The family of this 90-nucleotide RNA sequence from Actinoplanes derwentensis is "Glycine riboswitch aptamer".
The base pairs follow the family's consensus structure.
Lineage of the source: Bacteria > Actinomycetes > Micromonosporales > Micromonosporaceae > Actinoplanes.
[Rfam]
RNA sequence: AAUACCCAUGCGGGAGAGACCCUGUGCACAGGGCGCCGAAGGGGCAAAUCCUCCCCGGAACCUCUCAGGCAAAAGGACCGCGGUGGCUAG
Numbered sequence: 001a002a003u004a005c006c007c008a009u010g011c012g013g014g015a016g017a018g019a020c021c022c023u024g025u026g027c028a029c030a031g032g033g034c035g036c037c038g039a040a041g042g043g044g045c046a047a048a049u050c051c052u053c054c055c056c057g058g059a060a061c062c063u064c065u066c067a068g069g070c071a072a073a074a075g076g077a078c079c080g081c082g083g084u085g086g087c088u089a090g
Stems, first nucleotide, its partner, number of pairs: 006085001009082005020033004035070003038066002042064003049057001